[Rfam]
A member of the RNA family "MIR5565 microRNA precursor family" from Miscanthus lutarioriparius, 109 nucleotides long. Gene Ontology terms of the family: RISC complex and miRNA-mediated post-transcriptional gene silencing. Pairs were carried over by alignment from the consensus structure, which was predicted with RNAalifold. It scores 95 bits against the family's covariance model. The organism belongs to Miscanthus, within Eukaryota.
RNA sequence: GUUGUCGGAUUCAUCUCAGUCCACAUAUGUUAGAGUGGAUUGGGGUGAAAUUUAGUUUAUGUUUCACUCCAAUCCACCUCAACAUAUAUAGAUUGAUGCAAAUCCGACU
Numbered sequence: 001g002u003u004g005u006c007g008g009a010u011u012c013a014u015c016u017c018a019g020u021c022c023a024c025a026u027a028u029g030u031u032a033g034a035g036u037g038g039a040u041u042g043g044g045g046u047g048a049a050a051u052u053u054a055g056u057u058u059a060u061g062u063u064u065c066a067c068u069c070c071a072a073u074c075c076a077c078c079u080c081a082a083c084a085u086a087u088a089u090a091g092a093u094u095g096a097u098g099c100a101a102a103u104c105c106g107a108c109u
Stems, first nucleotide, its partner, number of pairs: 004108008014098001016096006023089001025087007035077009045067003